Rfam assigns this 102-nucleotide RNA from Ceratodon purpureus to the family "MIR1223 microRNA precursor family". On this family, see Axtell et al., Plant Cell 2007: "Common functions for diverse small RNAs of land plants". A search with the family's covariance model found it, with a score of 80 bits.
[Rfam]
RNA sequence: CUAAAUGUUCAGUAAGGGUGUGUGACUCUAUAAUCCUAAUAUCGAAGUGACAAGGUCACUUGGUUGCGAUUGUAGAGUCAUACACCUCUACUGGACUUUCAG
Numbered sequence: 001c002u003a004a005a006u007g008u009u010c011a012g013u014a015a016g017g018g019u020g021u022g023u024g025a026c027u028c029u030a031u032a033a034u035c036c037u038a039a040u041a042u043c044g045a046a047g048u049g050a051c052a053a054g055g056u057c058a059c060u061u062g063g064u065u066g067c068g069a070u071u072g073u074a075g076a077g078u079c080a081u082a083c084a085c086c087u088c089u090a091c092u093g094g095a096c097u098u099u100c101a102g
Stems, first nucleotide, its partner, number of pairs: 004099002009094003016087006023080004028075004033070003
Lineage of the source: Eukaryota > Streptophyta > Embryophyta > Bryophytina > Ceratodon.